[Rfam]
Notes:
This 135-nucleotide RNA from Castor canadensis belongs to the Rfam family "Small Cajal body specific RNA 3". From the family's description: scaRNAs are a specific class of small nuclear RNAs which localise to the Cajal bodies and guide the modification of RNA polymerase II transcribed spliceosomal RNAs U1, U2, U4, U5 and U12. The family's RNA type in Rfam is small Cajal body RNA. The organism belongs to Castor, within Eukaryota. A search with the family's covariance model found it, with a score of 84 bits. Its Rfam clan is "SCARNA3 clan".

RNA sequence: AACUGAAACAACAGGAACCAACCAUGUGGACAAAUGAGAAAAUACCUUUUGUCUCCAGAAAGCAGCAAUCCUACAUAAACAUGGAGGUCUCUUUUUGACUUAGGAUAGAUGCUAAGUCCAUACACUUAAAAAAUA
Numbered sequence: 001a002a003c004u005g006a007a008a009c010a011a012c013a014g015g016a017a018c019c020a021a022c023c024a025u026g027u028g029g030a031c032a033a034a035u036g037a038g039a040a041a042a043u044a045c046c047u048u049u050u051g052u053c054u055c056c057a058g059a060a061a062g063c064a065g066c067a068a069u070c071c072u073a074c075a076u077a078a079a080c081a082u083g084g085a086g087g088u089c090u091c092u093u094u095u096u097g098a099c100u101u102a103g104g105a106u107a108g109a110u111g112c113u114a115a116g117u118c119c120a121u122a123c124a125c126u127u128a129a130a131a132a133a134u135a
Stems, first nucleotide, its partner, number of pairs: 005070002009065001012062001025057002028054004036048003084127003093122001095120001097118007
Dot-bracket structure: ....((..(..(............((.((((....(((.......)))..)))).))....)..)...)).............(((......(.(.(((((((........))))))).).)..)))........